[Rfam]
RNA: Lysine riboswitch aptamer
RNA sequence: AAUCAUGAUAGAGGCGCGGUGUUUAAGAGUAUUAUAUCUGAGGCAAGCACGAUGAAGAUAUAAAAAAGGAACCAUCGCCGAAGCAUAAAGCUGAUGCUUUCAGGCUUUAUAGCUGGUUCUAAAUAGAAUAUAUUUAGAACUGUCACAAACGCAUAGUUUGUGGAGAGCUAUCAUGCAG
Numbered sequence: 001a002a003u004c005a006u007g008a009u010a011g012a013g014g015c016g017c018g019g020u021g022u023u024u025a026a027g028a029g030u031a032u033u034a035u036a037u038c039u040g041a042g043g044c045a046a047g048c049a050c051g052a053u054g055a056a057g058a059u060a061u062a063a064a065a066a067a068g069g070a071a072c073c074a075u076c077g078c079c080g081a082a083g084c085a086u087a088a089a090g091c092u093g094a095u096g097c098u099u100u101c102a103g104g105c106u107u108u109a110u111a112g113c114u115g116g117u118u119c120u121a122a123a124u125a126g127a128a129u130a131u132a133u134u135u136a137g138a139a140c141u142g143u144c145a146c147a148a149a150c151g152c153a154u155a156g157u158u159u160g161u162g163g164a165g166a167g168c169u170a171u172c173a174u175g176c177a178g
Stems, first nucleotide, its partner, number of pairs: 006173006016078006023071002032063008082114003085110008115141011143163007